Shown here is a 166-nucleotide RNA from Paenibacillus piri, a member of the family "FMN riboswitch aptamer (RFN element)". The base pairs follow the family's consensus structure, which is taken from published work. The RFN element is a highly conserved domain that is found frequently in the 5'-untranslated regions of prokaryotic mRNAs that encode for flavin mononucleotide (FMN) biosynthesis and transport proteins. This element is a metabolite-dependent riboswitch that directly binds FMN in the absence of proteins.
RNA sequence: GAUUUCCUUCGGGGCGGGGUGAAAUUCCCCACCGGCGGUGAUAUGAAGCGCGAAUGGCGCGUUUUAUUCAGUCCGUGACCCGUGCCGCAGCUUGUCGCAAGCCGCAGCCGGUGGACUCGGUGCAACUCCGAGACCGACAGUAUAGUCUGGAUGGGAGAAGGAAAAA
Numbered sequence: 001g002a003u004u005u006c007c008u009u010c011g012g013g014g015c016g017g018g019g020u021g022a023a024a025u026u027c028c029c030c031a032c033c034g035g036c037g038g039u040g041a042u043a044u045g046a047a048g049c050g051c052g053a054a055u056g057g058c059g060c061g062u063u064u065u066a067u068u069c070a071g072u073c074c075g076u077g078a079c080c081c082g083u084g085c086c087g088c089a090g091c092u093u094g095u096c097g098c099a100a101g102c103c104g105c106a107g108c109c110g111g112u113g114g115a116c117u118c119g120g121u122g123c124a125a126c127u128c129c130g131a132g133a134c135c136g137a138c139a140g141u142a143u144a145g146u147c148u149g150g151a152u153g154g155g156a157g158a159a160g161g162a163a164a165a166a
Stems, first nucleotide, its partner, number of pairs: 003164008017029003031146002033136002035076004080111002116132005138149003